[Rfam]
RNA sequence: UUGAAGGACCCGGGAGAGACCGCCCAUGCGGCGCCGAAGGGGAGAGACGCGAGAAACUCUCAGGCAAAAAGACCGGGUCUGGACG
Numbered sequence: 001u002u003g004a005a006g007g008a009c010c011c012g013g014g015a016g017a018g019a020c021c022g023c024c025c026a027u028g029c030g031g032c033g034c035c036g037a038a039g040g041g042g043a044g045a046g047a048c049g050c051g052a053g054a055a056a057c058u059c060u061c062a063g064g065c066a067a068a069a070a071g072a073c074c075g076g077g078u079c080u081g082g083a084c085g
Stems, first nucleotide, its partner, number of pairs: 006080008020031004033065003036061002040059003

The record is an 85-nucleotide RNA sequence from Harryflintia acetispora, which matches "Glycine riboswitch aptamer" in Rfam. Pairs were carried over by alignment from the consensus structure. NCBI's taxonomy places the organism under Bacteria, Bacillati, Clostridia, Eubacteriales, Harryflintia.